RNA sequence: CAUGACUCAAUCUUUGUUUCUCUUCGCAUUCUUUUUUACCUUCCCCUGAUUGGGAGGCGUUUUUCCGUAUAAAGAAAGCAUGCGAAGAAAAACAAAAAAGCCUCCCAAUCGGGGGGCUUUUUUCAU
Numbered sequence: 001c002a003u004g005a006c007u008c009a010a011u012c013u014u015u016g017u018u019u020c021u022c023u024u025c026g027c028a029u030u031c032u033u034u035u036u037u038a039c040c041u042u043c044c045c046c047u048g049a050u051u052g053g054g055a056g057g058c059g060u061u062u063u064u065c066c067g068u069a070u071a072a073a074g075a076a077a078g079c080a081u082g083c084g085a086a087g088a089a090a091a092a093c094a095a096a097a098a099a100g101c102c103u104c105c106c107a108a109u110c111g112g113g114g115g116g117c118u119u120u121u122u123u124c125a126u
Stems, first nucleotide, its partner, number of pairs: 016093004021088009031078004036072003042055004056066002059063001097120010
Annotation:
A member of the RNA family "Phenylalanine leader peptide" from Hafnia alvei, 126 nucleotides long. It scores 111 bits against the family's covariance model. Rfam links the family to the GO term cellular amino acid metabolic process.